[Rfam]
RNA sequence: CUCUUCGUCAUCUGGGGAGUAGCCAGUUGCGGCGCCGGUUUUGAAAGGGCGUUGCAAGCUCCUGCGUCAACAUACUCGGCCGAGAGGUCGUGGCGCAGGGGGAACGGGAUCACCGUUC
Numbered sequence: 001c002u003c004u005u006c007g008u009c010a011u012c013u014g015g016g017g018a019g020u021a022g023c024c025a026g027u028u029g030c031g032g033c034g035c036c037g038g039u040u041u042u043g044a045a046a047g048g049g050c051g052u053u054g055c056a057a058g059c060u061c062c063u064g065c066g067u068c069a070a071c072a073u074a075c076u077c078g079g080c081c082g083a084g085a086g087g088u089c090g091u092g093g094c095g096c097a098g099g100g101g102g103a104a105c106g107g108g109a110u111c112a113c114c115g116u117u118c
Base pairs, nucleotide, nucleotide: 027057028056029055030054031053032052033051034050035049036048060100061099062098063097064096065095066094067093068092069091077090078089079088080087081086102118103117104116105115106114107113
Manganese Mn2+ riboswitch aptamer (yybP-ykoY): a 118-nucleotide sequence from Pacificimonas flava. The organism belongs to Pacificimonas, within Bacteria. This RNA was originally discovered in E. coli during a large scale screen and was named SraF. The family was later found to exist upstream of related families of protein genes in many bacteria, including the the yybP and ykoK genes in B. subtilis. On this family, see Barrick et al., Proc Natl Acad Sci U S A 2004: "New RNA motifs suggest an expanded scope for riboswitches in bacterial genetic control".